Rfam assigns this 93-nucleotide RNA from Glycine soja to the family "Small nucleolar RNA R64/Z200 family".

RNA sequence: GUUCUGCAGAGACCAUUUCAGAAUCAAAUUCACAUGUCAGACUUAAGAGGUUUUCAGAUCAAUAUGAAUGAAAAUUAUGGUACUUAGCAGAAU
Numbered sequence: 001g002u003u004c005u006g007c008a009g010a011g012a013c014c015a016u017u018u019c020a021g022a023a024u025c026a027a028a029u030u031c032a033c034a035u036g037u038c039a040g041a042c043u044u045a046a047g048a049g050g051u052u053u054u055c056a057g058a059u060c061a062a063u064a065u066g067a068a069u070g071a072a073a074a075u076u077a078u079g080g081u082a083c084u085u086a087g088c089a090g091a092a093u
Stems, first nucleotide, its partner, number of pairs: 001093007049060004
Pairs were carried over by alignment from the consensus structure, which was predicted with PFOLD. Lineage of the source: Eukaryota > Streptophytina > Magnoliopsida > eudicotyledons > Glycine subgen. Soja.